Shown here is a 101-nucleotide RNA sequence from Speluncibacter jeojiensis, a member of the family "Actino-pnp RNA". The family's consensus secondary structure is taken from published work. NCBI's taxonomy places the organism under Bacteria, Bacillati, Actinomycetes, Speluncibacteraceae, Speluncibacter. A search with the family's covariance model found it, with a score of 55 bits.
RNA sequence: GUCGGUCCUCGGUAGUGGCCACCGGUGCGCCUGGGCAGGUAGCGCGUCGACACGGGGUCGACGCCGCCCGGGCAUCCCGAUGGCUUCGAUCGAAGACCGCC
Dot-bracket structure: (.(((((.(((((...(((((.(((...................................................))).)))))...))))).))))).)